Overview
The record is a 135-nucleotide RNA from Sapajus apella, which matches "Small nucleolar RNA SNORA70" in Rfam. Its family is annotated with nucleolus and RNA processing in the Gene Ontology. Rfam describes the family as follows. snoRNA U70 seems to be exclusive to mammals and is a member of the H/ACA class of snoRNA which contain H (ANANNA) and ACA box motifs. H/ACA box snoRNAs are involved in the conversion of uridines to pseudouridines (5-ribosyluracil) a constituent of structural RNAs (transfer, ribosomal, small nuclear, and small nucleolar). The family's RNA type in Rfam is H/ACA-box small nucleolar RNA. Taxonomically the source falls in Sapajus (Eukaryota, Deuterostomia, Sarcopterygii, Tetrapoda).
[Rfam]
RNA sequence: CUGCAGCCAGUUAAGCUGACCAAGUUUCUUUCCCCAUGGGGGCCCAGUGUGCAGUGGCUGCAAACAGCAGCUUCCCUGGUAGUGUAGGCAGCCUGUUUUUUGUAUGGGUUGCGCUAAGGGACCUUGGAGACCAGC
Numbered sequence: 001c002u003g004c005a006g007c008c009a010g011u012u013a014a015g016c017u018g019a020c021c022a023a024g025u026u027u028c029u030u031u032c033c034c035c036a037u038g039g040g041g042g043c044c045c046a047g048u049g050u051g052c053a054g055u056g057g058c059u060g061c062a063a064a065c066a067g068c069a070g071c072u073u074c075c076c077u078g079g080u081a082g083u084g085u086a087g088g089c090a091g092c093c094u095g096u097u098u099u100u101u102g103u104a105u106g107g108g109u110u111g112c113g114c115u116a117a118g119g120g121a122c123c124u125u126g127g128a129g130a131c132c133a134g135c
Stems, first nucleotide, its partner, number of pairs: 002053004019048002025042004078123003089111006
For this family Rfam cites "Pseudouridine in RNA: what, where, how, and why" (Charette and Gray, IUBMB Life, 2000).